[Rfam]
RNA sequence: GUGCUAAUAGGAUUGAACAAAGUCCCAAAUAUUGUAAUCCAUCUGUUUCACUUUGUCAGCAGACUUAAUUGGUGUCUUGCUGAUCAUUUUAUGAUGGGAUAUGG
Numbered sequence: 001g002u003g004c005u006a007a008u009a010g011g012a013u014u015g016a017a018c019a020a021a022g023u024c025c026c027a028a029a030u031a032u033u034g035u036a037a038u039c040c041a042u043c044u045g046u047u048u049c050a051c052u053u054u055g056u057c058a059g060c061a062g063a064c065u066u067a068a069u070u071g072g073u074g075u076c077u078u079g080c081u082g083a084u085c086a087u088u089u090u091a092u093g094a095u096g097g098g099a100u101a102u103g104g
Stems, first nucleotide, its partner, number of pairs: 038098006055084008
The family of this 104-nucleotide RNA from Brassica rapa is "Small nucleolar RNA snoR99". The literature on the family includes a 2002 paper in Curr Biol by Marker et al., "Experimental RNomics: identification of 140 candidates for small non-messenger RNAs in the plant Arabidopsis thaliana". By type it is an H/ACA-box small nucleolar RNA. Rfam's curators put it in the seed alignment.